Shown here is a 74-nucleotide sequence from Ornithorhynchus anatinus, a member of the family "mir-1421 microRNA precursor family". Rfam 15.1 lists 110 matches to the family in 14 species. Rfam's curators put it in the seed alignment.

[Rfam]
RNA sequence: CGGUGUCUGGAAGUCGCACGUCAUGCCGUGUGAAGGUGGAAUAUGCAGCAUAGCGUGUGACCCCCGUACACAGC
Dot-bracket structure: ..((((..((..(((((((((.((((.....................)))).)))))))))..))..))))...